[Rfam]
RNA: tRNA
Organism: Strongylocentrotus purpuratus
RNA sequence: AAGGACUUAAGUUAAAUAAACUGAAAGCCUUCAAAGCUUUAAACAAGAAUUGGAAACUUCUUAGUCCUUG
Numbered sequence: 001a002a003g004g005a006c007u008u009a010a011g012u013u014a015a016a017u018a019a020a021c022u023g024a025a026a027g028c029c030u031u032c033a034a035a036g037c038u039u040u041a042a043a044c045a046a047g048a049a050u051u052g053g054a055a056a057c058u059u060c061u062u063a064g065u066c067c068u069u070g
Stems, first nucleotide, its partner, number of pairs: 001069007010022004024040005045062005